[Rfam]
RNA: MIR535 microRNA precursor family
Organism: Rhynchospora breviuscula
RNA sequence: AAAGUGUGAUGACAACGGGAAAGAGCACGCUAGUAGACAACCAUGCCCGGCUCUGCAUGAAUGCCGACCGGCGUGCUCUCUCUCGUUGUCAACCCCAC
Number, nucleotide and partner (000 for none) at each position: 001a000002a000003a000004g000005u000006g000007u000008g000009a000010u091011g090012a089013c088014a087015a000016c085017g084018g000019g000020a081021a000022a000023g078024a000025g076026c075027a074028c073029g072030c071031u070032a000033g068034u067035a000036g000037a000038c000039a000040a000041c000042c000043a000044u000045g000046c000047c000048c000049g000050g000051c000052u000053c000054u000055g000056c000057a000058u000059g000060a000061a000062u000063g000064c000065c000066g000067a034068c033069c000070g031071g030072c029073g028074u027075g026076c025077u000078c023079u000080c000081u020082c000083u000084c017085g016086u000087u014088g013089u012090c011091a010092a000093c000094c000095c000096c000097a000098c000